Mason-Pfizer monkey virus packaging signal: a 279-nucleotide RNA sequence from Papio anubis. The literature on the family includes a 2004 paper in Virus Res by Mustafa et al., "Mutational analysis of the predicted secondary RNA structure of the Mason-Pfizer monkey virus packaging signal".
[Rfam]
RNA sequence: UGAAACCGAACAGGGACCUGGAAGCGAGGGACUCCGUGAGGAAAGAGGGCGUAGCCAGGGCGGUCGACGCUAACCCCAGACAAAGAGUAAAACUCUUCGUCCUGCGGGAACCUGCAGCGUCUGAAUCGAAAGGUAAGUGGUGGCGUCGAAAUGGGACAAGAAUUAAGUCAGCAUCAGAUCUAUAGGACAAUUAAAAGAACUUUAAAGAUAUCUGAAGAUGCAAAGGUUAAAAGGUAAUGAUUUAUUUAAAUUUUUGAUUUUGUAAAGACACUUGCCGUA
Dot-bracket structure: .....((....................))....((.(........).))..........................................(((.((..((.(((.(.......).)))...).)...)).)))......((...(((...)))..)).....(((((..............................)).)))........(((((((....((((((........))))))......)))))))........(.(.(....).).).

By type it is a cis-regulatory element.